[Rfam]
RNA sequence: GCGUGGAUGAAUUCUGUGUUAGCCUCUCAGUGGUCAAUGCAGCCAGACACCAUGCAAGAGAAUCGUUCACACAUGACCUCUACAAGGAUAGGAGUACUGCUCAGUAUUUGUAUCCUAGUGUCAACGUGAAUACAAAU
Numbered sequence: 001g002c003g004u005g006g007a008u009g010a011a012u013u014c015u016g017u018g019u020u021a022g023c024c025u026c027u028c029a030g031u032g033g034u035c036a037a038u039g040c041a042g043c044c045a046g047a048c049a050c051c052a053u054g055c056a057a058g059a060g061a062a063u064c065g066u067u068c069a070c071a072c073a074u075g076a077c078c079u080c081u082a083c084a085a086g087g088a089u090a091g092g093a094g095u096a097c098u099g100c101u102c103a104g105u106a107u108u109u110g111u112a113u114c115c116u117a118g119u120g121u122c123a124a125c126g127u128g129a130a131u132a133c134a135a136a137u
Stems, first nucleotide, its partner, number of pairs: 001055006014042006070128001071119001083118001085116006092109004
The record is a 137-nucleotide RNA sequence from Gadus morhua, which matches "Small nucleolar RNA SNORA15" in Rfam.
Rfam describes the family as follows. ACA15 is a member of the H/ACA class of snoRNA that guide the sites of modification of uridines to pseudouridines.
The family's RNA type in Rfam is H/ACA-box small nucleolar RNA.
On this family, see Huttenhofer et al., EMBO J 2001: "RNomics: an experimental approach that identifies 201 candidates for novel, small, non-messenger RNAs in mouse".
It scores 56 bits against the family's covariance model.
Its family is annotated with nucleolus and RNA processing in the Gene Ontology.
Taxonomically the source falls in Gadus (Eukaryota, Deuterostomia, Zeiogadaria, Gadidae).
Pairs were carried over by alignment from the consensus structure, which was predicted with RNAfold.